[Rfam]
Small nucleolar RNA SNORD24: a 75-nucleotide sequence from Catagonus wagneri. The family's RNA type in Rfam is C/D-box small nucleolar RNA. For this family Rfam cites "Site-specific ribose methylation of preribosomal RNA: a novel function for small nucleolar RNAs" (Kiss-Laszlo et al., Cell, 1996).
RNA sequence: UGCAGAUGAUGCGAAGGAACAGUUGCUGUCCGAGUGACGGUGAGGACGUCCCAAACCAUCGAGAUCGCUGAUGCG
Numbered sequence: 001u002g003c004a005g006a007u008g009a010u011g012c013g014a015a016g017g018a019a020c021a022g023u024u025g026c027u028g029u030c031c032g033a034g035u036g037a038c039g040g041u042g043a044g045g046a047c048g049u050c051c052c053a054a055a056c057c058a059u060c061g062a063g064a065u066c067g068c069u070g071a072u073g074c075g
Base pairs, nucleotide, nucleotide: 001075002074003073004072